A member of the RNA family "mir-8799 microRNA precursor family" from Canis lupus, 95 nucleotides long. The organism belongs to Canis lupus, within Eukaryota. The base pairs follow the family's consensus structure, which was predicted with RNAalifold. The match comes from Rfam's covariance-model search (48 bits).

[Rfam]
Nucleotides: 095
Stems, first nucleotide, its partner, number of pairs: 002094004010087001012084001014082001017080002020076003024072004028066002032064001033061001035059003042054001044053003
Number, partner (000 for none) and nucleotide at each position: 001000c002094g003093g004092g005091g006000a007000a008000g009000c010087g011000c012084c013000c014082g015000a016000u017080c018079c019000u020076g021075g022074g023000c024072u025071g026070u027069g028066u029065c030000c031000c032064c033061c034000c035059g036058u037057g038000c039000c040000c041000u042054g043000g044053g045052c046051u047000c048000c049000a050000g051046g052045g053044c054042c055000u056000u057037u058036g059035c060000c061033g062000c063000u064032g065029g066028a067000a068000u069027c070026g071025c072024g073000c074022u075021c076020c077000c078000a079018g080017g081000g082014c083000c084012g085000c086000a087010c088000a089000g090000c091005c092004c093003c094002c095000a